Overview:
Rfam assigns this 98-nucleotide sequence from Streptococcus danieliae to the family "Bacterial small signal recognition particle RNA". The literature on the family includes a 2002 paper in Nucleic Acids Res by Regalia et al., "Prediction of signal recognition particle RNA genes".
RNA sequence: AAUACUCAAUGGAGCAACAAUCUUGCGUGAAGCGGGUCAGGGGAGGAAUCCAGCAGCCCUAAGCGAUUUAGAUUGUGUGCUCUUUUUUUUGCUGUUAA
Numbered sequence: 001a002a003u004a005c006u007c008a009a010u011g012g013a014g015c016a017a018c019a020a021u022c023u024u025g026c027g028u029g030a031a032g033c034g035g036g037u038c039a040g041g042g043g044a045g046g047a048a049u050c051c052a053g054c055a056g057c058c059c060u061a062a063g064c065g066a067u068u069u070a071g072a073u074u075g076u077g078u079g080c081u082c083u084u085u086u087u088u089u090u091g092c093u094g095u096u097a098a
Stems, first nucleotide, its partner, number of pairs: 005091001008088001009085001011083004015077001017076006026065003034059004042051003